Shown here is a 186-nucleotide RNA sequence from Melipona bicolor, a member of the family "U2 spliceosomal RNA".
Taxonomically the source falls in Melipona (Eukaryota, Pancrustacea, Hexapoda, Pterygota).
Rfam describes the family as follows. U2 is a small nuclear RNA (snRNA) component of the spliceosome (involved in pre-mRNA splicing).
RNA sequence: ACAUUUGUUGAAAAUAAAGGGUGUUUAUCUGUUCUUAUCAGCUUAAUAUCUGAUACACCUCCCCCAUAGGGUUGAGUCAGGAUAUGUAACCUGAUUUUUGGGACUGGGCGGAGUCUCUGGGGCUCGCUCCUGCUCCGCCGCGGGUCAGCCUGGCAUUGCAGUGCCGCUGGGAUUGGCCCAACAAGU
Numbered sequence: 001a002c003a004u005u006u007g008u009u010g011a012a013a014a015u016a017a018a019g020g021g022u023g024u025u026u027a028u029c030u031g032u033u034c035u036u037a038u039c040a041g042c043u044u045a046a047u048a049u050c051u052g053a054u055a056c057a058c059c060u061c062c063c064c065c066a067u068a069g070g071g072u073u074g075a076g077u078c079a080g081g082a083u084a085u086g087u088a089a090c091c092u093g094a095u096u097u098u099u100g101g102g103a104c105u106g107g108g109c110g111g112a113g114u115c116u117c118u119g120g121g122g123c124u125c126g127c128u129c130c131u132g133c134u135c136c137g138c139c140g141c142g143g144g145u146c147a148g149c150c151u152g153g154c155a156u157u158g159c160a161g162u163g164c165c166g167c168u169g170g171g172a173u174u175g176g177c178c179c180a181a182c183a184a185g186u
Base pairs, nucleotide, nucleotide: 001008002007036055037054038053039052040051041050059076060075061074063071064070065069107139108138109137110136111135112134113133114132119130120129121128122127142179143178144177145176146175147174149171150170151169152168153167154166
Pairs were carried over by alignment from the consensus structure, which is taken from published work.
It is annotated as a spliceosomal small nuclear RNA.
Clan: U2 clan.
The match comes from Rfam's covariance-model search (92 bits).